[Rfam]
RNA sequence: UUUAGUAUUAGGCUCGUGCAUAAUGAUGUUGUUACCUACUGCAUGUAGUAGGUGUGUUUUUCCUAAACCCGUGCCACCAUA
Number, nucleotide and partner (000 for none) at each position: 001u000002u000003u000004a000005g042006u041007a040008u000009u038010a037011g036012g035013c000014u000015c000016g032017u031018g030019c000020a029021u028022a000023a000024u000025g000026a000027u000028g021029u020030u018031g017032u016033u000034a000035c012036c011037u010038a009039c000040u007041g006042c005043a000044u000045g000046u000047a000048g000049u000050a000051g078052g077053u076054g075055u000056g074057u073058u000059u000060u000061u000062c071063c000064u000065a000066a000067a000068c000069c000070c000071g062072u000073g057074c056075c054076a053077c052078c051079a000080u000081a000

antisense RNA of dnaA mRNA: an 81-nucleotide RNA from Pantoea sp. Nvir. Its family is annotated with regulation of mRNA stability in the Gene Ontology. It scores 65 bits against the family's covariance model.